Rfam assigns this 229-nucleotide RNA from Phoenix dactylifera to the family "MIR159 microRNA precursor family". Lineage of the source: Eukaryota > Euphyllophyta > Liliopsida > Arecaceae > Phoenix. A reference for the family is Jones-Rhoades and Bartel (2004), "Computational identification of plant microRNAs and their targets, including a stress-induced miRNA", Mol Cell.
[Rfam]
RNA sequence: GGCUUUGAGGUAGAGCUCCUUGAGAUCCAAAGGAGGGUCUUCAAGGGAUGGAUUUAGCUGCUGAGUCAUGGAUUCCACUCACCUAUCCCAUGGUAUUUUUUGAUGCCAAUGAUGAGAGAGAGACGUUCUUGCGGGAUCUGGAAUAGGCUUGUGGUUUGCAUGACCCAGGAGCUGCAUUAACCCUUCCUGAUCUUUGUUUGGAUUGAAGGGAGCUCUACCUCUACACCCU
Numbered sequence: 001g002g003c004u005u006u007g008a009g010g011u012a013g014a015g016c017u018c019c020u021u022g023a024g025a026u027c028c029a030a031a032g033g034a035g036g037g038u039c040u041u042c043a044a045g046g047g048a049u050g051g052a053u054u055u056a057g058c059u060g061c062u063g064a065g066u067c068a069u070g071g072a073u074u075c076c077a078c079u080c081a082c083c084u085a086u087c088c089c090a091u092g093g094u095a096u097u098u099u100u101u102g103a104u105g106c107c108a109a110u111g112a113u114g115a116g117a118g119a120g121a122g123a124c125g126u127u128c129u130u131g132c133g134g135g136a137u138c139u140g141g142a143a144u145a146g147g148c149u150u151g152u153g154g155u156u157u158g159c160a161u162g163a164c165c166c167a168g169g170a171g172c173u174g175c176a177u178u179a180a181c182c183c184u185u186c187c188u189g190a191u192c193u194u195u196g197u198u199u200g201g202a203u204u205g206a207a208g209g210g211a212g213c214u215c216u217a218c219c220u221c222u223a224c225a226c227c228c229u
Stems, first nucleotide, its partner, number of pairs: 013215008024204006036192001058171002061168003067162004075154004